[Rfam]
RNA sequence: AAACCGCCCCUUAAGUUUUGCAACUGUAGCAGUUUUGGCCCCCCAAGGCCAAUUAUUGGAAAGAAAAAAAAAACAUGGCACCUCACUUAAGGUGCCACGUCAGCGUAGAUCGAGUCAAAAUUGGCCCCUCGGGGCCCAAAACUGCACAGAUGCAAAACUUAUAGGGUAGUUU
Numbered sequence: 001a002a003a004c005c006g007c008c009c010c011u012u013a014a015g016u017u018u019u020g021c022a023a024c025u026g027u028a029g030c031a032g033u034u035u036u037g038g039c040c041c042c043c044c045a046a047g048g049c050c051a052a053u054u055a056u057u058g059g060a061a062a063g064a065a066a067a068a069a070a071a072a073a074c075a076u077g078g079c080a081c082c083u084c085a086c087u088u089a090a091g092g093u094g095c096c097a098c099g100u101c102a103g104c105g106u107a108g109a110u111c112g113a114g115u116c117a118a119a120a121u122u123g124g125c126c127c128c129u130c131g132g133g134g135c136c137c138a139a140a141a142c143u144g145c146a147c148a149g150a151u152g153c154a155a156a157a158c159u160u161a162u163a164g165g166g167u168a169g170u171u172u
Stems, first nucleotide, its partner, number of pairs: 001172002004169001006167003012161011024149004029145010040134004045129001073100002076097007
RNA: MIR2619 microRNA precursor family
Organism: Medicago truncatula